The family of this 73-nucleotide RNA from Vagococcus coleopterorum is "tRNA".
The match comes from Rfam's covariance-model search (66 bits).
Rfam describes the family as follows. Transfer RNA (tRNA) molecules are approximately 80 nucleotides in length.
Gene Ontology term of the family: triplet codon-amino acid adaptor activity.
Pairs were carried over by alignment from the consensus structure, which is taken from published work.

RNA sequence: GCGGAUGUGGUGAAGUGGUUAACACAUCGGAUUGUGGUUCCGACAUGCGUGGGUUCGAUUCCCAUCAUCCGCC
Numbered sequence: 001g002c003g004g005a006u007g008u009g010g011u012g013a014a015g016u017g018g019u020u021a022a023c024a025c026a027u028c029g030g031a032u033u034g035u036g037g038u039u040c041c042g043a044c045a046u047g048c049g050u051g052g053g054u055u056c057g058a059u060u061c062c063c064a065u066c067a068u069c070c071g072c073c
Stems, first nucleotide, its partner, number of pairs: 001072007010025003027043005049065005